[Rfam]
RNA sequence: UGGUGCCCAACAGUGAGGCUUUGGAUACGGGGGAAUUCGAGAGGGAAGAGGCGUGUAAGUGUUCGGCCCAAGAAAAAAAAAAGUGAAAGUGACUUCAAGAAAGUUCGCCGCAGGAGCCUGCCGCGCCGUUCUUAAAGGUACAGUAGCGCCUAGGUAUGGGACAAGAAUUAAGUAAGCAUAAAGUUUUUGUUAAGCAAUUAAAAGAAGCCUUAAAGACACGGGGAGUAAAGGUUAAGAAAAUGAUCUUUUUAAGUUUUUUGACCUUAUUAAGGACACCUGUCCGU
Numbered sequence: 001u002g003g004u005g006c007c008c009a010a011c012a013g014u015g016a017g018g019c020u021u022u023g024g025a026u027a028c029g030g031g032g033g034a035a036u037u038c039g040a041g042a043g044g045g046a047a048g049a050g051g052c053g054u055g056u057a058a059g060u061g062u063u064c065g066g067c068c069c070a071a072g073a074a075a076a077a078a079a080a081a082a083g084u085g086a087a088a089g090u091g092a093c094u095u096c097a098a099g100a101a102a103g104u105u106c107g108c109c110g111c112a113g114g115a116g117c118c119u120g121c122c123g124c125g126c127c128g129u130u131c132u133u134a135a136a137g138g139u140a141c142a143g144u145a146g147c148g149c150c151u152a153g154g155u156a157u158g159g160g161a162c163a164a165g166a167a168u169u170a171a172g173u174a175a176g177c178a179u180a181a182a183g184u185u186u187u188u189g190u191u192a193a194g195c196a197a198u199u200a201a202a203a204g205a206a207g208c209c210u211u212a213a214a215g216a217c218a219c220g221g222g223g224a225g226u227a228a229a230g231g232u233u234a235a236g237a238a239a240a241u242g243a244u245c246u247u248u249u250u251a252a253g254u255u256u257u258u259u260g261a262c263c264u265u266a267u268u269a270a271g272g273a274c275a276c277c278u279g280u281c282c283g284u
Stems, first nucleotide, its partner, number of pairs: 006033003013028003038050001094136002106128001109125003113121001144164001146162001149160004169212003172208002219260008229246006269284001271282004
Mason-Pfizer monkey virus packaging signal: a 284-nucleotide sequence from Sciurus vulgaris. The family's RNA type in Rfam is cis-regulatory element. The organism belongs to Sciurus, within Eukaryota. The family has 9 seed sequences and 2,921 matches in Rfam 15.1. Rfam links the family to the GO term viral genome packaging.